[Rfam]
RNA sequence: GUUUUGUGAUGAUCCCCAUGCGUGUCAACUGAUCCCAGAAUCCCCUGCUUCUCUGUCUCUCAGCUAGUGUUCUGCUAGUGGGUGUGCAUGGGGCUGCAGGGCUCUGGGUCCAUGAUCAGAGCUCACAGUGGCUGAC
Number, nucleotide and partner (000 for none) at each position: 001g136002u135003u134004u000005u000006g000007u000008g000009a000010u000011g000012a000013u000014c000015c000016c000017c000018a000019u000020g000021c000022g000023u000024g000025u000026c000027a000028a000029c000030u000031g000032a000033u000034c000035c000036c000037a000038g000039a000040a000041u000042c000043c101044c100045c099046u098047g097048c096049u000050u000051c093052u000053c000054u000055g000056u000057c000058u000059c000060u000061c000062a000063g000064c000065u000066a000067g000068u000069g000070u000071u000072c000073u000074g000075c000076u000077a000078g000079u000080g000081g000082g000083u000084g000085u000086g000087c000088a000089u000090g000091g000092g000093g051094c000095u000096g048097c047098a046099g045100g044101g043102c000103u000104c000105u000106g000107g000108g000109u000110c000111c000112a000113u000114g000115a000116u000117c000118a000119g000120a000121g000122c000123u000124c000125a000126c000127a000128g000129u000130g000131g000132c000133u000134g003135a002136c001
The record is a 136-nucleotide RNA sequence from Conger conger, which matches "Small nucleolar RNA SNORD10" in Rfam. Gene Ontology terms of the family: nucleolus and RNA processing. The family has 22 seed sequences and 433 matches in Rfam 15.1. The source organism's lineage runs through Eukaryota, Metazoa, Craniata, Congridae and Conger.